[Rfam]
RNA sequence: GUAAUAGACAUCUAGGGUUCCGGCUUUUUAGCGACUGGACCGAGAGUUGUCGACCUUUUAUUUGAAGGUUACACGGAGGGAUAAAAGCCCGGGAGAA
Numbered sequence: 001g002u003a004a005u006a007g008a009c010a011u012c013u014a015g016g017g018u019u020c021c022g023g024c025u026u027u028u029u030a031g032c033g034a035c036u037g038g039a040c041c042g043a044g045a046g047u048u049g050u051c052g053a054c055c056u057u058u059u060a061u062u063u064g065a066a067g068g069u070u071a072c073a074c075g076g077a078g079g080g081a082u083a084a085a086a087g088c089c090c091g092g093g094a095g096a097a
Base pairs, nucleotide, nucleotide: 007051008050009049010048012046015041016040020038021037022035023032024031025030052070053069054068055067056066057065058064072092074095078090079089080088
This 97-nucleotide RNA sequence from Psychromonas algarum belongs to the Rfam family "Guanidine-I riboswitch aptamer". This family represents a conserved RNA structure found upstream of the ykkC and yxkD genes in Bacillus subtilis and related genes in other bacteria. It scores 86 bits against the family's covariance model.